[Rfam]
A member of the RNA family "Small nucleolar RNA SNORD25" from Turnera subulata, 85 nucleotides long. Gene Ontology terms of the family: RNA processing and nucleolus. A search with the family's covariance model found it, with a score of 67 bits. For this family Rfam cites "Identification of 10 novel snoRNA gene clusters from Arabidopsis thaliana" (Qu et al., Nucleic Acids Res, 2001). By type it is a C/D-box small nucleolar RNA. The base pairs follow the family's consensus structure, which was predicted with PFOLD.
RNA sequence: AAGAACGGUGAUGAGUUCUACAGACCUGUAAUGAUUUGCGGUUAUGAUCGCAAUUCUUUAUGAACAUCUAAGGGACUGAGUUCUU
Numbered sequence: 001a002a003g004a005a006c007g008g009u010g011a012u013g014a015g016u017u018c019u020a021c022a023g024a025c026c027u028g029u030a031a032u033g034a035u036u037u038g039c040g041g042u043u044a045u046g047a048u049c050g051c052a053a054u055u056c057u058u059u060a061u062g063a064a065c066a067u068c069u070a071a072g073g074g075a076c077u078g079a080g081u082u083c084u085u
Stems, first nucleotide, its partner, number of pairs: 002084005